[Rfam]
RNA: c-di-AMP riboswitch aptamer (ydaO/yuaA leader)
RNA sequence: GCAAGGGAAUCGCAGCAACCGCUACGGCAGGAGCGGGGGAACCAGGUAAGCGCCGUGCCGCGAACCGCGGCCGGCUUGGGGUGAAGCCACGCCCACGCGCCACGGGCGCCACGGGAGUGGCCGGGCUGCUCCAGUCCGAAUCCGACAGCUCACCUCGCAGGCGCAGGAGAGGAAACAC
Numbered sequence: 001g002c003a004a005g006g007g008a009a010u011c012g013c014a015g016c017a018a019c020c021g022c023u024a025c026g027g028c029a030g031g032a033g034c035g036g037g038g039g040a041a042c043c044a045g046g047u048a049a050g051c052g053c054c055g056u057g058c059c060g061c062g063a064a065c066c067g068c069g070g071c072c073g074g075c076u077u078g079g080g081g082u083g084a085a086g087c088c089a090c091g092c093c094c095a096c097g098c099g100c101c102a103c104g105g106g107c108g109c110c111a112c113g114g115g116a117g118u119g120g121c122c123g124g125g126c127u128g129c130u131c132c133a134g135u136c137c138g139a140a141u142c143c144g145a146c147a148g149c150u151c152a153c154c155u156c157g158c159a160g161g162c163g164c165a166g167g168a169g170a171g172g173a174a175a176c177a178c
Base pairs, nucleotide, nucleotide: 011163012162013161019031020030033158034157035156036155037154038153043078044077045076046075047074079143080142081141087120088119089118090117123137124136125135126134